A member of the RNA family "Small nucleolar RNA SNORD24" from Quiscalus mexicanus, 66 nucleotides long. Pairs were carried over by alignment from the consensus structure, which was predicted with PFOLD. NCBI's taxonomy places the organism under Eukaryota, Craniata, Vertebrata, Euteleostomi, Quiscalus. For this family Rfam cites "U24, a novel intron-encoded small nucleolar RNA with two 12 nt long, phylogenetically conserved complementarities to 28S rRNA" (Qu et al., Nucleic Acids Res, 1995).
RNA sequence: UGCAGAUGAUGAUCAUUUUUUGCUGUGAAAAAAAAUGUGAUGCCAACCACCAAGAUCGCUGAUGCA
Numbered sequence: 001u002g003c004a005g006a007u008g009a010u011g012a013u014c015a016u017u018u019u020u021u022g023c024u025g026u027g028a029a030a031a032a033a034a035a036u037g038u039g040a041u042g043c044c045a046a047c048c049a050c051c052a053a054g055a056u057c058g059c060u061g062a063u064g065c066a
Stems, first nucleotide, its partner, number of pairs: 001066004